Shown here is a 264-nucleotide RNA from Firmicutes bacterium CAG:475, a member of the family "Bacterial large signal recognition particle RNA".
[Rfam]
RNA sequence: CUGUGCUAGACGGGGAGCUUGCGGUGCCCUGUAAACUACAAUCCGCAAUAGUAGUGUCGAACGCCGUCCGAGGUCUUUGAUAUGGUUGGCUGCACGGUGCAAGGAAUGUUGAUAGCAAGGUCCCGUGCAAUGUCAUACUGCGAACCGUGUCAGAGCUUGACCGCAGCAGCACUAAACAGGCGUUGGCGUGUGCCACGGGGAAACUUUGGAGGAGUCACCUACACCGUUUCCGCUUCGGUGUCGAUUAUCGAAGACGGUGCACAG
Numbered sequence: 001c002u003g004u005g006c007u008a009g010a011c012g013g014g015g016a017g018c019u020u021g022c023g024g025u026g027c028c029c030u031g032u033a034a035a036c037u038a039c040a041a042u043c044c045g046c047a048a049u050a051g052u053a054g055u056g057u058c059g060a061a062c063g064c065c066g067u068c069c070g071a072g073g074u075c076u077u078u079g080a081u082a083u084g085g086u087u088g089g090c091u092g093c094a095c096g097g098u099g100c101a102a103g104g105a106a107u108g109u110u111g112a113u114a115g116c117a118a119g120g121u122c123c124c125g126u127g128c129a130a131u132g133u134c135a136u137a138c139u140g141c142g143a144a145c146c147g148u149g150u151c152a153g154a155g156c157u158u159g160a161c162c163g164c165a166g167c168a169g170c171a172c173u174a175a176a177c178a179g180g181c182g183u184u185g186g187c188g189u190g191u192g193c194c195a196c197g198g199g200g201a202a203a204c205u206u207u208g209g210a211g212g213a214g215u216c217a218c219c220u221a222c223a224c225c226g227u228u229u230c231c232g233c234u235u236c237g238g239u240g241u242c243g244a245u246u247a248u249c250g251a252a253g254a255c256g257g258u259g260c261a262c263a264g
Stems, first nucleotide, its partner, number of pairs: 001264006009058003012030004017025003035055005064257005072249003079242005085236001088233001092229001095226005103219002106215002113211001116208006122199006128190002131188005138179003147172004155164002